RNA: U4 spliceosomal RNA
RNA sequence: GACUUUGCGCAGCGGCGAUAUCGUAACCAAUGAGGUUUAUCCGAGGUGCGAUUAUUGCUAGUUGAAAACUUAUACCAAUACCCCGCCGGGAGGACUUGAAAUACAGUCCCCCUGGCAAUUUUUGAGAGCCUCUACGGAGG
Number, nucleotide and partner (000 for none) at each position: 001g000002a000003c000004u000005u000006u000007g000008c000009g000010c000011a000012g000013c000014g000015g000016c000017g000018a000019u000020a052021u051022c050023g049024u048025a000026a047027c046028c045029a000030a000031u000032g000033a000034g042035g041036u000037u000038u000039a000040u000041c035042c034043g000044a000045g028046g027047u026048g024049c023050g022051a021052u020053u000054a000055u000056u000057g000058c000059u000060a000061g000062u000063u000064g000065a000066a000067a000068a000069c000070u000071u000072a000073u000074a000075c000076c000077a000078a000079u000080a000081c000082c000083c000084c000085g116086c115087c114088g112089g111090g110091a000092g108093g107094a000095c000096u103097u000098g000099a000100a000101a000102u000103a096104c000105a000106g000107u093108c092109c000110c090111c089112c088113u000114g087115g086116c085117a000118a000119u000120u000121u000122u000123u000124g000125a000126g000127a000128g000129c140130c139131u138132c137133u000134a000135c000136g000137g132138a131139g130140g129